About this RNA
A member of the RNA family "mir-3960 microRNA precursor family" from Homo sapiens, 70 nucleotides long. Rfam links the family to the GO terms miRNA-mediated post-transcriptional gene silencing and RISC complex. The organism belongs to Homo, within Eukaryota.

RNA sequence: GCCCCGGCUCCCCGCGCCCCCGAUCGGGGCCGCCGCUAGUAGUGGCGGCGGCGGAGGCGGGGGCAGCGGC
Numbered sequence: 001g002c003c004c005c006g007g008c009u010c011c012c013c014g015c016g017c018c019c020c021c022g023a024u025c026g027g028g029g030c031c032g033c034c035g036c037u038a039g040u041a042g043u044g045g046c047g048g049c050g051g052c053g054g055a056g057g058c059g060g061g062g063g064c065a066g067c068g069g070c
Stems, first nucleotide, its partner, number of pairs: 001070003005066001007064002010062006016052003029049006036042002